Overview
Shown here is a 75-nucleotide RNA from Pocillopora damicornis, a member of the family "Small nucleolar RNA SNORD18". Clan: SNORD18 clan. Gene Ontology terms of the family: RNA processing and nucleolus. NCBI's taxonomy places the organism under Eukaryota, Metazoa, Anthozoa, Pocilloporidae, Pocillopora. Rfam 15.1 lists 2,622 matches to the family in 960 species. The family's RNA type in Rfam is C/D-box small nucleolar RNA. The family's consensus secondary structure was predicted with PFOLD.
[Rfam]
RNA sequence: CAGCGUGUGAUGAGUGAAACUUCAGGUCCGUGUUGUUGAGAGUAAAUCUGUGAUAGAACUUGAAGUUCUGAGCUG
Numbered sequence: 001c002a003g004c005g006u007g008u009g010a011u012g013a014g015u016g017a018a019a020c021u022u023c024a025g026g027u028c029c030g031u032g033u034u035g036u037u038g039a040g041a042g043u044a045a046a047u048c049u050g051u052g053a054u055a056g057a058a059c060u061u062g063a064a065g066u067u068c069u070g071a072g073c074u075g
Stems, first nucleotide, its partner, number of pairs: 001075004